[Rfam]
RNA: Streptomyces RNA 1601
Organism: Streptomyces colonosanans
RNA sequence: GACGACCGGCCGGACACGGCAGUGCCCGGCCCACAAGUGGAGGCUCCGAUCUCCCACCUGGCCGUCCUCCGGGACGGCGGGUCACCGGUCAGACGACCACCAUCACUCCGCACGGUCGAUGGAGUCGUCCGAAACGCGCCCCGCGGCACACCGCGGCGGUGCUCCGGAAAGCUCGGAGUCCCGCCUGUGUCCCGUCCGGGGCAUUUUUC
Number, nucleotide and partner (000 for none) at each position: 001g000002a000003c000004g090005a089006c088007c087008g086009g085010c000011c000012g027013g026014a000015c000016a000017c000018g000019g000020c000021a000022g000023u000024g000025c000026c013027c012028g083029g082030c081031c080032c079033a000034c060035a059036a000037g057038u056039g055040g054041a052042g051043g000044c000045u000046c000047c000048g000049a000050u000051c042052u041053c000054c040055c039056a038057c037058c000059u035060g034061g078062c077063c076064g075065u074066c073067c072068u000069c000070c000071g000072g067073g066074a065075c064076g063077g062078c061079g032080g031081g030082u029083c028084a000085c009086c008087g007088g006089u005090c004091a000092g129093a128094c127095g126096a125097c000098c000099a000100c122101c121102a120103u119104c118105a000106c000107u000108c000109c000110g000111c000112a000113c000114g000115g000116u000117c000118g104119a103120u102121g101122g100123a000124g000125u096126c095127g094128u093129c092130c000131g000132a000133a000134a000135c000136g000137c000138g202139c201140c200141c199142c198143g197144c194145g193146g192147c000148a000149c000150a000151c000152c189153g188154c187155g185156g184157c183158g182159g181160u000161g179162c178163u177164c176165c175166g000167g000168a000169a000170a000171g000172c000173u000174c000175g165176g164177a163178g162179u161180c000181c159182c158183g157184c156185c155186u000187g154188u153189g152190u000191c000192c146193c145194g144195u000196c000197c143198g142199g141200g140201g139202c138203a000204u000205u000206u000207u000208u000209c000